[Rfam]
Record summary
Group II catalytic intron D1-D4-1: an 83-nucleotide RNA. The match comes from Rfam's covariance-model search (37 bits).
RNA sequence: AAACCUGUCUCAAAAGGGGAAAGGCUUUUUGAACAGGAUUCAGCAGAGCUCAUUGAAAGAGCUUUAAACUAGAUUUGAAGGGG
Numbered sequence: 001a002a003a004c005c006u007g008u009c010u011c012a013a014a015a016g017g018g019g020a021a022a023g024g025c026u027u028u029u030u031g032a033a034c035a036g037g038a039u040u041c042a043g044c045a046g047a048g049c050u051c052a053u054u055g056a057a058a059g060a061g062c063u064u065u066a067a068a069c070u071a072g073a074u075u076u077g078a079a080g081g082g083g
Base pairs, nucleotide, nucleotide: 001027002026004024005023006022008020009019010017011016039048040047041046049083050082051081058076059075060074062072063071